Shown here is a 106-nucleotide RNA from Treponema primitia, a member of the family "Termite-flg RNA".
RNA sequence: AAACGGUUCGUUCCGUACAGAGAAUUUCCGGGAGGAAUGGCGCGACCCUCCUUCCGGGAAGGCUUACCGUGCGGUUCGACUGUGGCUAAGGAUAGCCGCAGUUACU
Numbered sequence: 001a002a003a004c005g006g007u008u009c010g011u012u013c014c015g016u017a018c019a020g021a022g023a024a025u026u027u028c029c030g031g032g033a034g035g036a037a038u039g040g041c042g043c044g045a046c047c048c049u050c051c052u053u054c055c056g057g058g059a060a061g062g063c064u065u066a067c068c069g070u071g072c073g074g075u076u077c078g079a080c081u082g083u084g085g086c087u088a089a090g091g092a093u094a095g096c097c098g099c100a101g102u103u104a105c106u
Stems, first nucleotide, its partner, number of pairs: 009078002013074004020065003028057009079102008
It scores 54 bits against the family's covariance model.